[Rfam]
RNA sequence: GUCAAUAACCCACCACUUAGCCUCAGAUGAGGCUUGAAGUGGAGGCUUGCAAAAGCCUUUGUUGACUACCCUCUGUCCUUUGAGGACUACGUUGGUUUGGUCAUGACACCUACGGAUGCUCCCCAAGUCCGUAGCACCUGUCGUUUAUGGUUAAAAGGCUCUGAUGGGUAGGAGCGGUGCUGUAGACACAACAAGCCUUUCCAACAUUGGGUAUGGGGCACUUAC
Numbered sequence: 001g002u003c004a005a006u007a008a009c010c011c012a013c014c015a016c017u018u019a020g021c022c023u024c025a026g027a028u029g030a031g032g033c034u035u036g037a038a039g040u041g042g043a044g045g046c047u048u049g050c051a052a053a054a055g056c057c058u059u060u061g062u063u064g065a066c067u068a069c070c071c072u073c074u075g076u077c078c079u080u081u082g083a084g085g086a087c088u089a090c091g092u093u094g095g096u097u098u099g100g101u102c103a104u105g106a107c108a109c110c111u112a113c114g115g116a117u118g119c120u121c122c123c124c125a126a127g128u129c130c131g132u133a134g135c136a137c138c139u140g141u142c143g144u145u146u147a148u149g150g151u152u153a154a155a156a157g158g159c160u161c162u163g164a165u166g167g168g169u170a171g172g173a174g175c176g177g178u179g180c181u182g183u184a185g186a187c188a189c190a191a192c193a194a195g196c197c198u199u200u201c202c203a204a205c206a207u208u209g210g211g212u213a214u215g216g217g218g219c220a221c222u223u224a225c
Stems, first nucleotide, its partner, number of pairs: 001066008010045002013042002016039002046055003069211003075087004091205005099197003106141002110134008118221001121218005143187009155178001158175005164169001
RNA: HNH endonuclease-associated RNA and ORF (HEARO) RNA